[Rfam]
RNA sequence: GCCGAGCUCAGUAGCGAGAGCUUGUAACCCAAGUGGGGGCAUUAAGGUGGUGAGAAUGCUUAGAGAAGCCUUCUAGGCUUGGGCCUAUGGUGUUCCUUUGCUGGUCUGCCCGUCCCAAGUUGGUAGUGGUUAGUGGGGGCCUUGGUGAAAGCUUGGGCCUCUGUAAACCUGAAGUGGCAGGAAUGGCGUGAGGCUGCCCGCUUCCAACGGUGGGAGGAUAACAGGCCGCUGCAUCAUGAGCUCAAUUCAGGCCUAGAGCCUCUCUAUAGCAGACCACCACUUUU
Numbered sequence: 001g002c003c004g005a006g007c008u009c010a011g012u013a014g015c016g017a018g019a020g021c022u023u024g025u026a027a028c029c030c031a032a033g034u035g036g037g038g039g040c041a042u043u044a045a046g047g048u049g050g051u052g053a054g055a056a057u058g059c060u061u062a063g064a065g066a067a068g069c070c071u072u073c074u075a076g077g078c079u080u081g082g083g084c085c086u087a088u089g090g091u092g093u094u095c096c097u098u099u100g101c102u103g104g105u106c107u108g109c110c111c112g113u114c115c116c117a118a119g120u121u122g123g124u125a126g127u128g129g130u131u132a133g134u135g136g137g138g139g140c141c142u143u144g145g146u147g148a149a150a151g152c153u154u155g156g157g158c159c160u161c162u163g164u165a166a167a168c169c170u171g172a173a174g175u176g177g178c179a180g181g182a183a184u185g186g187c188g189u190g191a192g193g194c195u196g197c198c199c200g201c202u203u204c205c206a207a208c209g210g211u212g213g214g215a216g217g218a219u220a221a222c223a224g225g226c227c228g229c230u231g232c233a234u235c236a237u238g239a240g241c242u243c244a245a246u247u248c249a250g251g252c253c254u255a256g257a258g259c260c261u262c263u264c265u266a267u268a269g270c271a272g273a274c275c276a277c278c279a280c281u282u283u284u
Stems, first nucleotide, its partner, number of pairs: 001040003004023006028037003044283009054274001057271002060268001063264004068259001071258010081243004086238003090235001092234002096231001102228007110217002113215005119208005125202003129168003133164010144153003169174001176198005
A member of the RNA family "Plant signal recognition particle RNA" from Sorghum bicolor, 284 nucleotides long. By type it is a non-coding RNA gene.